A member of the RNA family "Cia-dependent small RNA csRNA1" from Streptococcus massiliensis, 93 nucleotides long. For this family Rfam cites "Identification of the genes directly controlled by the response regulator CiaR in Streptococcus pneumoniae: five out of 15 promoters drive expression of small non-coding RNAs" (Halfmann et al., Mol Microbiol, 2007). The source organism's lineage runs through Bacteria, Bacillati, Lactobacillales, Streptococcaceae and Streptococcus. The pairing is the family consensus, mapped onto this sequence. It scores 61 bits against the family's covariance model.

RNA sequence: UACAAGUUAAGAAGAACUUAAUUUGUACUCCUAAAACUUUUUCUUUUUCAUAAUAAUCUCCCUAUAAGACUCGUCAAAUUUGACGAGUUUUUU
Numbered sequence: 001u002a003c004a005a006g007u008u009a010a011g012a013a014g015a016a017c018u019u020a021a022u023u024u025g026u027a028c029u030c031c032u033a034a035a036a037c038u039u040u041u042u043c044u045u046u047u048u049c050a051u052a053a054u055a056a057u058c059u060c061c062c063u064a065u066a067a068g069a070c071u072c073g074u075c076a077a078a079u080u081u082g083a084c085g086a087g088u089u090u091u092u093u
Stems, first nucleotide, its partner, number of pairs: 001027011067090009